[Rfam]
RNA: Small nucleolar RNA snR70
Organism: Oncorhynchus tshawytscha
RNA sequence: AUAUAUAUAUAUAUAUAGAAGUAUAUACUACAGAUUCUACGAGGGAGUAGAAGUGCAUCUCACUUCGCUCUGUUAUAUAUAUUUUUAAAACAGAGCGAAGUGAGAUGCACUUCUACUCCCUCGUAGAAUCUGUAGUAUAUACUUCUAGACAUACUGUAC
Numbered sequence: 001a002u003a004u005a006u007a008u009a010u011a012u013a014u015a016u017a018g019a020a021g022u023a024u025a026u027a028c029u030a031c032a033g034a035u036u037c038u039a040c041g042a043g044g045g046a047g048u049a050g051a052a053g054u055g056c057a058u059c060u061c062a063c064u065u066c067g068c069u070c071u072g073u074u075a076u077a078u079a080u081a082u083u084u085u086u087a088a089a090a091c092a093g094a095g096c097g098a099a100g101u102g103a104g105a106u107g108c109a110c111u112u113c114u115a116c117u118c119c120c121u122c123g124u125a126g127a128a129u130c131u132g133u134a135g136u137a138u139a140u141a142c143u144u145c146u147a148g149a150c151a152u153a154c155u156g157u158a159c
Stems, first nucleotide, its partner, number of pairs: 008153003016147004021142005028135007036127003040123010050108001052106001054104001062101013